[Rfam]
RNA sequence: GCGUUGGUGUGGCUCAGUGGUUACUUCUGAUUUCCUGAAAAAAUCUUCAUCUCAUGGCCGCUGGGAAACCGGAGACCAGAGAUCGAACCUCGGGCACUGUCCAACGUUUUC
Dot-bracket structure: .((((((....((((.(.((....(((((........................................))))).............)).))))).....)))))).....
Numbered sequence: 001g002c003g004u005u006g007g008u009g010u011g012g013c014u015c016a017g018u019g020g021u022u023a024c025u026u027c028u029g030a031u032u033u034c035c036u037g038a039a040a041a042a043a044u045c046u047u048c049a050u051c052u053c054a055u056g057g058c059c060g061c062u063g064g065g066a067a068a069c070c071g072g073a074g075a076c077c078a079g080a081g082a083u084c085g086a087a088c089c090u091c092g093g094g095c096a097c098u099g100u101c102c103a104a105c106g107u108u109u110u111c
Stems, first nucleotide, its partner, number of pairs: 002106006012095004017091001019089002025074005